This 143-nucleotide RNA from Psophia crepitans belongs to the Rfam family "Small nucleolar RNA SNORA12". It scores 78 bits against the family's covariance model. From the family's description: U108 belongs to the H/ACA family of snoRNAs.
RNA sequence: UGUUGUGGUGGUUUCUGUAUUUGGCAGAUCUGUAACUGUAUCAGAGCGGCCUUAAACUACCACAGAGAUCAGAAAGGAGAAGGCUGUGCUGAGAACUUUUUCGAGCUUUUUAGUUUUCAGCUCUUUGUUCAGCUCCUACAGAA
Numbered sequence: 001u002g003u004u005g006u007g008g009u010g011g012u013u014u015c016u017g018u019a020u021u022u023g024g025c026a027g028a029u030c031u032g033u034a035a036c037u038g039u040a041u042c043a044g045a046g047c048g049g050c051c052u053u054a055a056a057c058u059a060c061c062a063c064a065g066a067g068a069u070c071a072g073a074a075a076g077g078a079g080a081a082g083g084c085u086g087u088g089c090u091g092a093g094a095a096c097u098u099u100u101u102c103g104a105g106c107u108u109u110u111u112a113g114u115u116u117u118c119a120g121c122u123c124u125u126u127g128u129u130c131a132g133c134u135c136c137u138a139c140a141g142a143a
Stems, first nucleotide, its partner, number of pairs: 005063007023051003027047001029045004076136004103130004